The record is a 586-nucleotide part of an RNA from Streptomyces seoulensis, which matches "Bacterial large subunit ribosomal RNA" in Rfam. It scores 2765 bits against the family's covariance model. The source organism's lineage runs through Bacteria, Actinomycetota, Actinomycetes, Kitasatosporales and Streptomyces.
RNA sequence: CGCGCAGCAGGACGGAAAGACCCCGGGACCUUUACUACAGUUUGAUAUUGGUGUUCGGUUCGGCUUGUGUAGGAUAGCUGGGAGACUUUGAAGCAUGCACGCCAGUGUGUGUGGAGUCGUCGUUGAAAUACCAGUCUGGUCGUGCUGGAUGUCUAACCUGGGUCCGUGAUCCGGAUCAGGGACAGUGUCUGAUGGGUAGUUUAACUGGGGCGGUUGCCUCCUAAAGAGUAACGGAGGCGCCCAAAGGUUCCCUCAGCCUGGUUGGCAAUCAGGUGUUGAGUGUAAGUGCACAAGGGAGCUUGACUGUGAGACCGACGGGUCGAGCAGGGACGAAAGUCGGGACUAGUGAUCCGGCGGUGGCUUGUGGAAGCGCCGUCGCUCAACGGAUAAAAGGUACCCCGGGGAUAACAGGCUGAUCUUCCCCAAGAGUCCAUAUCGACGGGAUGGUUUGGCACCUCGAUGUCGGCUCGUCGCAUCCUGGGGCUGGAGUCGGUCCCAAGGGUUGGGCUGUUCGCCCAUUAAAGCGGUACGCGAGCUGGGUUUAGAACGUCGUGAGACAGUUCGGUCCCUAUCCGCUGUGCGCGUA
Numbered sequence: 001c002g003c004g005c006a007g008c009a010g011g012a013c014g015g016a017a018a019g020a021c022c023c024c025g026g027g028a029c030c031u032u033u034a035c036u037a038c039a040g041u042u043u044g045a046u047a048u049u050g051g052u053g054u055u056c057g058g059u060u061c062g063g064c065u066u067g068u069g070u071a072g073g074a075u076a077g078c079u080g081g082g083a084g085a086c087u088u089u090g091a092a093g094c095a096u097g098c099a100c101g102c103c104a105g106u107g108u109g110u111g112u113g114g115a116g117u118c119g120u121c122g123u124u125g126a127a128a129u130a131c132c133a134g135u136c137u138g139g140u141c142g143u144g145c146u147g148g149a150u151g152u153c154u155a156a157c158c159u160g161g162g163u164c165c166g167u168g169a170u171c172c173g174g175a176u177c178a179g180g181g182a183c184a185g186u187g188u189c190u191g192a193u194g195g196g197u198a199g200u201u202u203a204a205c206u207g208g209g210g211c212g213g214u215u216g217c218c219u220c221c222u223a224a225a226g227a228g229u230a231a232c233g234g235a236g237g238c239g240c241c242c243a244a245a246g247g248u249u250c251c252c253u254c255a256g257c258c259u260g261g262u263u264g265g266c267a268a269u270c271a272g273g274u275g276u277u278g279a280g281u282g283u284a285a286g287u288g289c290a291c292a293a294g295g296g297a298g299c300u301u302g303a304c305u306g307u308g309a310g311a312c313c314g315a316c317g318g319g320u321c322g323a324g325c326a327g328g329g330a331c332g333a334a335a336g337u338c339g340g341g342a343c344u345a346g347u348g349a350u351c352c353g354g355c356g357g358u359g360g361c362u363u364g365u366g367g368a369a370g371c372g373c374c375g376u377c378g379c380u381c382a383a384c385g386g387a388u389a390a391a392a393g394g395u396a397c398c399c400c401g402g403g404g405a406u407a408a409c410a411g412g413c414u415g416a417u418c419u420u421c422c423c424c425a426a427g428a429g430u431c432c433a434u435a436u437c438g439a440c441g442g443g444a445u446g447g448u449u450u451g452g453c454a455c456c457u458c459g460a461u462g463u464c465g466g467c468u469c470g471u472c473g474c475a476u477c478c479u480g481g482g483g484c485u486g487g488a489g490u491c492g493g494u495c496c497c498a499a500g501g502g503u504u505g506g507g508c509u510g511u512u513c514g515c516c517c518a519u520u521a522a523a524g525c526g527g528u529a530c531g532c533g534a535g536c537u538g539g540g541u542u543u544a545g546a547a548c549g550u551c552g553u554g555a556g557a558c559a560g561u562u563c564g565g566u567c568c569c570u571a572u573c574c575g576c577u578g579u580g581c582g583c584g585u586a
Stems, first nucleotide, its partner, number of pairs: 001582008010574003014569002022403006028395005034200004041192002044189004050153010061142005067136001077135005084118003093112008157180003161177006203215004216238006239384001241341002247299006253279002256274006280289002304327004310321003329338003352378007360371002412453003416450001417447002420444004427437002464539001465537004469531001470528005477502002480497006504518005545563004549558003
The base pairs follow the family's consensus structure, which is taken from published work.